[Rfam]
RNA sequence: AGAUGCAGCAAGGCGGCUGCUCAUGAAUGGUCCCCAUCCAUGGGAGGAAAGUCCGAGCACGACAGGACACGACGGUGGGUAACACCCACCCGUUCCAACACCAGAACCAACUCUGGCGGCUGGGAACGAGGGAAAGUGCCACAGAAAGCAAACCCCCGAUGGCUUCUCCGGAAGCACAGGGAAGGGUGAAAGGGUGCGGUAAGAGCGCACCGCCCGAUUGGUGACAAUCGGGGCAAGGUAAACCCCGUCGCGUGCAAGCCCAAGCAGAUCCUCACGCAUUGCGUAUCUCUCGUCCGGAGACCGCAGGAUCGGGUAGGGUGCUGGGAGCAUCAGCUCCCCAUCGUGUUGGCAACAGCACGAGCAGAGAAAUAGUCGCCCAGCUACGCAAGUCCGAUCGAGCCCCCGUCAUAAGGUUGAUCGGAAACUACGGAGCGGACAAAACUCGGCUUACCAGCUGCAUCCAGCC
Numbered sequence: 001a002g003a004u005g006c007a008g009c010a011a012g013g014c015g016g017c018u019g020c021u022c023a024u025g026a027a028u029g030g031u032c033c034c035c036a037u038c039c040a041u042g043g044g045a046g047g048a049a050a051g052u053c054c055g056a057g058c059a060c061g062a063c064a065g066g067a068c069a070c071g072a073c074g075g076u077g078g079g080u081a082a083c084a085c086c087c088a089c090c091c092g093u094u095c096c097a098a099c100a101c102c103a104g105a106a107c108c109a110a111c112u113c114u115g116g117c118g119g120c121u122g123g124g125a126a127c128g129a130g131g132g133a134a135a136g137u138g139c140c141a142c143a144g145a146a147a148g149c150a151a152a153c154c155c156c157c158g159a160u161g162g163c164u165u166c167u168c169c170g171g172a173a174g175c176a177c178a179g180g181g182a183a184g185g186g187u188g189a190a191a192g193g194g195u196g197c198g199g200u201a202a203g204a205g206c207g208c209a210c211c212g213c214c215c216g217a218u219u220g221g222u223g224a225c226a227a228u229c230g231g232g233g234c235a236a237g238g239u240a241a242a243c244c245c246c247g248u249c250g251c252g253u254g255c256a257a258g259c260c261c262a263a264g265c266a267g268a269u270c271c272u273c274a275c276g277c278a279u280u281g282c283g284u285a286u287c288u289c290u291c292g293u294c295c296g297g298a299g300a301c302c303g304c305a306g307g308a309u310c311g312g313g314u315a316g317g318g319u320g321c322u323g324g325g326a327g328c329a330u331c332a333g334c335u336c337c338c339c340a341u342c343g344u345g346u347u348g349g350c351a352a353c354a355g356c357a358c359g360a361g362c363a364g365a366g367a368a369a370u371a372g373u374c375g376c377c378c379a380g381c382u383a384c385g386c387a388a389g390u391c392c393g394a395u396c397g398a399g400c401c402c403c404c405g406u407c408a409u410a411a412g413g414u415u416g417a418u419c420g421g422a423a424a425c426u427a428c429g430g431a432g433c434g435g436a437c438a439a440a441a442c443u444c445g446g447c448u449u450a451c452c453a454g455c456u457g458c459a460u461c462c463a464g465c466c
Stems, first nucleotide, its partner, number of pairs: 002461008012377007020044006027037002049449003053446005058254004065295004070250005075089005090130001091128006131245002136243002138239003153185002155181003162175005193211006212234001213232008258319004267310006286300005341360008
RNA: Bacterial RNase P class A